[Rfam]
RNA sequence: CGAACGUUGUAAUAUUACCUUCAUAUAUCCUUAGGAAUUGGCCUAAGAGUCUCUACCGGGUCACCGUAAACGGCCUGACUAUGAAGGCAGGAACUUUCUAU
Numbered sequence: 001c002g003a004a005c006g007u008u009g010u011a012a013u014a015u016u017a018c019c020u021u022c023a024u025a026u027a028u029c030c031u032u033a034g035g036a037a038u039u040g041g042c043c044u045a046a047g048a049g050u051c052u053c054u055a056c057c058g059g060g061u062c063a064c065c066g067u068a069a070a071c072g073g074c075c076u077g078a079c080u081a082u083g084a085a086g087g088c089a090g091g092a093a094c095u096u097u098c099u100a101u
Stems, first nucleotide, its partner, number of pairs: 018087008030047006057077006